Description:
Shown here is a 66-nucleotide sequence from Oceanobacillus piezotolerans, a member of the family "Bacillaceae-1 RNA". The base pairs follow the family's consensus structure, which is taken from published work. Rfam classes the family as a small RNA. A search with the family's covariance model found it, with a score of 46 bits. Lineage of the source: Bacteria > Bacillati > Caryophanales > Bacillaceae > Oceanobacillus.
[Rfam]
RNA sequence: GUAAGAGAAGUUCCGACUAAGAACGCCACAUCAUGUGGCACGUCGAACCACCCCACGUCCUGUGGC
Numbered sequence: 001g002u003a004a005g006a007g008a009a010g011u012u013c014c015g016a017c018u019a020a021g022a023a024c025g026c027c028a029c030a031u032c033a034u035g036u037g038g039c040a041c042g043u044c045g046a047a048c049c050a051c052c053c054c055a056c057g058u059c060c061u062g063u064g065g066c
Stems, first nucleotide, its partner, number of pairs: 010048003014045004025039005053065004
Dot-bracket structure: .........(((.((((.......(((((.....)))))..)))))))....((((.....)))).